[Rfam]
The family of this 70-nucleotide sequence is "potC RNA".
RNA sequence: AAAACAGUGCCCGCGUCACUCUCCUUUAGAAUCUUUACCCUUUUCUAAAAAUUGUCGUGGGCAUUAAAAA
Numbered sequence: 001a002a003a004a005c006a007g008u009g010c011c012c013g014c015g016u017c018a019c020u021c022u023c024c025u026u027u028a029g030a031a032u033c034u035u036u037a038c039c040c041u042u043u044u045c046u047a048a049a050a051a052u053u054g055u056c057g058u059g060g061g062c063a064u065u066a067a068a069a070a
Stems, first nucleotide, its partner, number of pairs: 006065010017054002027047005
It is annotated as a cis-regulatory element. Rfam's curators put it in the seed alignment. Pairs were carried over by alignment from the consensus structure, which is taken from published work.